About this RNA: Small nucleolar RNA SNORA57: a 149-nucleotide sequence from Nannospalax galili. Rfam 15.1 lists 1,736 matches to the family in 530 species. The organism belongs to Nannospalax, within Eukaryota. U99 belongs to the H/ACA class of snoRNAs which are thought to guide the sites of modification of uridines to pseudouridines, the target for this family is unknown.

Nucleotides: 149
Base pairs, nucleotide, nucleotide: 001057002056003055004054017042018041019040020039022037023036024035084140085139086138087137088136102123103122104121108117
Number, partner (000 for none) and nucleotide at each position: 001057c002056c003055u004054u005000c006000u007000u008000u009000a010000u011000u012000u013000g014000g015000a016000a017042g018041g019040g020039a021000c022037u023036g024035g025000c026000u027000c028000u029000g030000u031000g032000g033000u034000c035024c036023u037022g038000c039020u040019c041018c042017c043000c044000a045000u046000u047000a048000u049000g050000u051000a052000c053000a054004g055003a056002g057001g058000c059000a060000g061000a062000g063000g064000g065000a066000a067000a068000g069000g070000g071000c072000u073000g074000u075000g076000g077000c078000c079000c080000u081000c082000c083000c084140g085139g086138c087137a088136u089000c090000a091000u092000g093000g094000c095000u096000u097000c098000g099000g100000u101000c102123c103122c104121g105000g106000c107000a108117g109000c110000u111000u112000c113000c114000u115000g116000u117108c118000c119000a120000a121104c122103g123102g124000u125000u126000c127000u128000a129000u130000c131000c132000u133000c134000a135000a136088a137087u138086g139085c140084c141000a142000g143000g144000a145000c146000a147000a148000u149000g